The family of this 287-nucleotide RNA sequence from Molossus molossus is "Mason-Pfizer monkey virus packaging signal". Rfam 15.1 lists 2,921 matches to the family in 53 species. The base pairs follow the family's consensus structure, which was predicted with PFOLD. The source organism's lineage runs through Eukaryota, Gnathostomata, Mammalia, Yangochiroptera and Molossus. Rfam classes the family as a cis-regulatory element.
RNA sequence: UGACGCCCAACGUGGGGCUCCAGCACGGGGGAUCCAGUGAAGGACACUGUUCGAGUGGCCGGCAGAAAGGAAAGCAAAGGAAAAGAAAGAAAAAGAAAAGAGGGAACGACGUGGGAACCUGCUGCGUCUGCACCCCUCGAGUAAGUGAACGGCGAUUAUGGGUCAAGCAUUGAGCCAAGAGAAGAUGUUCAUUGAAGGACUAGGAAAGGCUAUCAAGGCACGAGGAGUAAAGGUGAAAAUUAAGCAUUUAUGUCAGUAUUUUGAAUAUGCUAAGGAAGUUUGUCCUU
Numbered sequence: 001u002g003a004c005g006c007c008c009a010a011c012g013u014g015g016g017g018c019u020c021c022a023g024c025a026c027g028g029g030g031g032a033u034c035c036a037g038u039g040a041a042g043g044a045c046a047c048u049g050u051u052c053g054a055g056u057g058g059c060c061g062g063c064a065g066a067a068a069g070g071a072a073a074g075c076a077a078a079g080g081a082a083a084a085g086a087a088a089g090a091a092a093a094a095g096a097a098a099a100g101a102g103g104g105a106a107c108g109a110c111g112u113g114g115g116a117a118c119c120u121g122c123u124g125c126g127u128c129u130g131c132a133c134c135c136c137u138c139g140a141g142u143a144a145g146u147g148a149a150c151g152g153c154g155a156u157u158a159u160g161g162g163u164c165a166a167g168c169a170u171u172g173a174g175c176c177a178a179g180a181g182a183a184g185a186u187g188u189u190c191a192u193u194g195a196a197g198g199a200c201u202a203g204g205a206a207a208g209g210c211u212a213u214c215a216a217g218g219c220a221c222g223a224g225g226a227g228u229a230a231a232g233g234u235g236a237a238a239a240u241u242a243a244g245c246a247u248u249u250a251u252g253u254c255a256g257u258a259u260u261u262u263g264a265a266u267a268u269g270c271u272a273a274g275g276a277a278g279u280u281u282g283u284c285c286u287u
Base pairs, nucleotide, nucleotide: 006031007030008029012026013025014024035049036048037047038046100138101137102135103134107130110126111125112124113123114122146165147164148163150162153160154159172213174210175209176208221263222262223261224260225259227257228256231249232248233247234246235245272287273286274285275284276283